Rfam assigns this 103-nucleotide RNA sequence from Tripterygium wilfordii to the family "Small nucleolar RNA Z279/snoR105/snoR108". Its Rfam clan is "snoU13 clan". A reference for the family is Marker et al. (2002), "Experimental RNomics: identification of 140 candidates for small non-messenger RNAs in the plant Arabidopsis thaliana", Curr Biol. Lineage of the source: Eukaryota > Streptophytina > eudicotyledons > fabids > Tripterygium. Pairs were carried over by alignment from the consensus structure, which was predicted with PFOLD. A search with the family's covariance model found it, with a score of 73 bits. About the family: This family includes the plant snoRNAs known as Z279, snoR105 and snoR108. The family's RNA type in Rfam is C/D-box small nucleolar RNA.
[Rfam]
RNA sequence: GGGAUAUGAUGAGUGGUCAUUUUCUUGCAUAUCUGUGCGGGAUGGGCGUCCGCCCUGCCUGGUUACGACAACUGGGCGCUCCCAUCAUAACCGAUCUGAUCCC
Numbered sequence: 001g002g003g004a005u006a007u008g009a010u011g012a013g014u015g016g017u018c019a020u021u022u023u024c025u026u027g028c029a030u031a032u033c034u035g036u037g038c039g040g041g042a043u044g045g046g047c048g049u050c051c052g053c054c055c056u057g058c059c060u061g062g063u064u065a066c067g068a069c070a071a072c073u074g075g076g077c078g079c080u081c082c083c084a085u086c087a088u089a090a091c092c093g094a095u096c097u098g099a100u101c102c103c
Stems, first nucleotide, its partner, number of pairs: 001103004014093004024041005044081007060074004